Shown here is a 144-nucleotide RNA from Bacillus cereus, a member of the family "FMN riboswitch aptamer (RFN element)". The organism belongs to Bacillus cereus, within Bacteria. Rfam links the family to the GO term FMN binding.
RNA sequence: AGCAUCCUUCGGGGUCGGGUGAAAUUCCCAACCGGCGGUGAUGAAGUGCAAACUUCUAAGUCCGUGACCCGUUUUCAAAUCGAAAACGGUGGAUCUAGUGAAAUUCUAGGGCCGACAGUAUAGUCUGGAUGGGAGAAGGAUAUG
Dot-bracket structure: ...(((((((......(((.......))).[[((((((.....................[[))))...((.................))....(((((.......)))))]])).(((....]]))).......)))))))...

Rfam's curators put it in the seed alignment.